[Rfam]
Nucleotides: 161
Stems, first nucleotide, its partner, number of pairs: 001050007022039005029123005051104006064084007071146007085094003127159001129157011
Number, partner (000 for none) and nucleotide at each position: 001050u002049u003048u004047g005046u006045c007044a008000g009000c010000a011000u012000u013000c014000g015000g016000g017000c018000a019000u020000a021000u022039u023038g024037c025036a026035g027000a028000a029123c030122c031121a032120a033119a034000a035026c036025u037024g038023c039022g040000a041000a042000a043000g044007u045006g046005g047004c048003a049002a050001a051104g052103u053102a054101c055100u056099u057000g058000a059000u060000a061000g062000a063000a064084g065083u066082g067081c068080u069079u070078g071146g072145g073144g074143c075142c076141a077140u078070c079069g080068a081067g082066u083065g084064c085094g086093g087092u088000g089000a090000a091000a092087a093086c094085c095000u096000g097000c098000a099056a100055a101054g102053u103052a104051c105000a106000u107000a108000g109000g110000g111000u112000a113000a114000a115000c116000a117000a118000a119033u120032u121031u122030g123029g124000c125000g126000a127159a128000a129157a130156a131155c132154u133153g134152u135151a136150a137149g138148g139147a140077a141076u142075g143074g144073c145072c146071c147139u148138c149137c150136u151135u152134g153133c154132a155131g156130u157129u158000c159127u160000u161000u
The family of this 161-nucleotide RNA is "FuFi-1 RNA".